[Rfam]
A. fumigatus sRNA Afu_309: a 357-nucleotide RNA sequence from Ceratocystis fimbriata. NCBI's taxonomy places the organism under Eukaryota, Pezizomycotina, Hypocreomycetidae, Ceratocystidaceae, Ceratocystis fimbriata.
RNA sequence: UUUCCUUUGUAACUCACGGAAUUGUGCCCUGCGAUCCUCUGGCUAAUGGCUUGCGACGAGUUUUUCGUGUUUUGUCACUUGGUUUCAGGGUCGAACGCAGACGGCAGUUUGAUCUUUCUAUAGAGCCACGCGUUUUUAGUAGUGUUAUCUGAUCAACAGUUCCUAGAUCAAGUCAGCUGGUUCGGCCAUACUGAAGUUUUUCGUUUGUACUCUGCACGUGCUCGCUUUUCACAGGGGCUGAGCUGUGUAGGGGAGAGGACUUGAGGAGACCAACCAUACUGCAGCCUCUAUAUUCCACCCCUUUUUUCUGAGGUCAUUGACCAGUGAAGUUGAGGAUACCCAUAGUUGGCUACAUUC
Numbered sequence: 001u002u003u004c005c006u007u008u009g010u011a012a013c014u015c016a017c018g019g020a021a022u023u024g025u026g027c028c029c030u031g032c033g034a035u036c037c038u039c040u041g042g043c044u045a046a047u048g049g050c051u052u053g054c055g056a057c058g059a060g061u062u063u064u065u066c067g068u069g070u071u072u073u074g075u076c077a078c079u080u081g082g083u084u085u086c087a088g089g090g091u092c093g094a095a096c097g098c099a100g101a102c103g104g105c106a107g108u109u110u111g112a113u114c115u116u117u118c119u120a121u122a123g124a125g126c127c128a129c130g131c132g133u134u135u136u137u138a139g140u141a142g143u144g145u146u147a148u149c150u151g152a153u154c155a156a157c158a159g160u161u162c163c164u165a166g167a168u169c170a171a172g173u174c175a176g177c178u179g180g181u182u183c184g185g186c187c188a189u190a191c192u193g194a195a196g197u198u199u200u201u202c203g204u205u206u207g208u209a210c211u212c213u214g215c216a217c218g219u220g221c222u223c224g225c226u227u228u229u230c231a232c233a234g235g236g237g238c239u240g241a242g243c244u245g246u247g248u249a250g251g252g253g254a255g256a257g258g259a260c261u262u263g264a265g266g267a268g269a270c271c272a273a274c275c276a277u278a279c280u281g282c283a284g285c286c287u288c289u290a291u292a293u294u295c296c297a298c299c300c301c302u303u304u305u306u307u308c309u310g311a312g313g314u315c316a317u318u319g320a321c322c323a324g325u326g327a328a329g330u331u332g333a334g335g336a337u338a339c340c341c342a343u344a345g346u347u348g349g350c351u352a353c354a355u356u357c
Stems, first nucleotide, its partner, number of pairs: 018163008026105003029100003033096001035094002037090005042083002045079001047077003053070002056068004113155001116152001118151001121147003125143002175277001179275004184270001284350003288345004300335002303333002308329002312322004